[Rfam]
Small nucleolar RNA SNORA4: a 140-nucleotide RNA sequence from Otolemur garnettii. ACA4 is a member of the H/ACA class of snoRNA that guide the sites of modification of uridines to pseudouridines.

RNA sequence: UUACCAAAAGUUAAUUUGGUGAGGGAAGGUUGUAUUAAUAACCUUUACCAAGCUGGGCUGUUUGGGAGAGUAAACACGACCACACUCCACAGUGGGCUAUAUCACUUAGUAUAGUUCACUACUAUUUUGUGGCCUACAUU
Numbered sequence: 001u002u003a004c005c006a007a008a009a010g011u012u013a014a015u016u017u018g019g020u021g022a023g024g025g026a027a028g029g030u031u032g033u034a035u036u037a038a039u040a041a042c043c044u045u046u047a048c049c050a051a052g053c054u055g056g057g058c059u060g061u062u063u064g065g066g067a068g069a070g071u072a073a074a075c076a077c078g079a080c081c082a083c084a085c086u087c088c089a090c091a092g093u094g095g096g097c098u099a100u101a102u103c104a105c106u107u108a109g110u111a112u113a114g115u116u117c118a119c120u121a122c123u124a125u126u127u128u129g130u131g132g133c134c135u136a137c138a139u140u
Base pairs, nucleotide, nucleotide: 004065005064006063007062008061012060013059015057016056017055021053024049025048027046028043029042030041031040078134080132081131082130083129084128091120092119093118094117095116096115097114098113099112100111101110102109
Lineage of the source: Eukaryota > Craniata > Euteleostomi > Eutheria > Otolemur.
Its Rfam clan is "SNORA4 clan".
It is annotated as an H/ACA-box small nucleolar RNA.
Rfam 15.1 lists 290 matches to the family in 136 species.